[Rfam]
RNA sequence: UGGUUGUAGCCAAAUCCAACGCCUCGGAAGUUAGUUGGCUGGUUGUCAUCAAUCACUGUCGACAAUUAUGCUUAUCGAACUUCUCACAUUC
Numbered sequence: 001u002g003g004u005u006g007u008a009g010c011c012a013a014a015u016c017c018a019a020c021g022c023c024u025c026g027g028a029a030g031u032u033a034g035u036u037g038g039c040u041g042g043u044u045g046u047c048a049u050c051a052a053u054c055a056c057u058g059u060c061g062a063c064a065a066u067u068a069u070g071c072u073u074a075u076c077g078a079a080c081u082u083c084u085c086a087c088a089u090u091c
Stems, first nucleotide, its partner, number of pairs: 026084007037072003042067001044065001045063003